[Rfam]
RNA sequence: CGUUCCCGCUCUGAACUCCAGUUCCAGGCGAGUCUCUGGGGACCCAGACUCAUACGGGGAGAAACUGGACUGUUUGGCAGCGGGCCGA
Numbered sequence: 001c002g003u004u005c006c007c008g009c010u011c012u013g014a015a016c017u018c019c020a021g022u023u024c025c026a027g028g029c030g031a032g033u034c035u036c037u038g039g040g041g042a043c044c045c046a047g048a049c050u051c052a053u054a055c056g057g058g059g060a061g062a063a064a065c066u067g068g069a070c071u072g073u074u075u076g077g078c079a080g081c082g083g084g085c086c087g088a
Base pairs, nucleotide, nucleotide: 001087002086006083007082008081009080010079011077012076013075015073016072017069018068019067020066021065022064023060024059025058028053030051031050032049035048036047037046038045039044
Dot-bracket structure: ((...((((((((.(((((((((((..(.(((..(((((....)))))))).)....)))...))))))..)).))).)))))..)).